[Rfam]
Shown here is a 66-nucleotide RNA from Flavobacterium columnare, a member of the family "DUF805 RNA". Lineage of the source: Bacteria > Pseudomonadati > Bacteroidota > Flavobacteriales > Flavobacterium columnare. Rfam classes the family as a cis-regulatory element. Clan: DUF805 clan. The family has 46 seed sequences and 281 matches in Rfam 15.1.

RNA sequence: AACAAUUGGAGAUCAGAUACCAAAAAAAACGAGGCGUAACCGAAAAGCCAGAUGAGUAGGGUUUUA
Numbered sequence: 001a002a003c004a005a006u007u008g009g010a011g012a013u014c015a016g017a018u019a020c021c022a023a024a025a026a027a028a029a030c031g032a033g034g035c036g037u038a039a040c041c042g043a044a045a046a047g048c049c050a051g052a053u054g055a056g057u058a059g060g061g062u063u064u065u066a
Stems, first nucleotide, its partner, number of pairs: 006023004033049003040060002